Shown here is a 62-nucleotide RNA from Monodelphis domestica, a member of the family "mir-7385 microRNA precursor family". Pairs were carried over by alignment from the consensus structure, which was predicted with RNAalifold.
RNA sequence: AGGUCGGAUAUUCUGUCUUUCAGUGAUGUUCUAAACCCUGGAACACAGGCUAUCUGACCUAG
Numbered sequence: 001a002g003g004u005c006g007g008a009u010a011u012u013c014u015g016u017c018u019u020u021c022a023g024u025g026a027u028g029u030u031c032u033a034a035a036c037c038c039u040g041g042a043a044c045a046c047a048g049g050c051u052a053u054c055u056g057a058c059c060u061a062g
Stems, first nucleotide, its partner, number of pairs: 001060010013048004018043004
It is one of the family's seed sequences.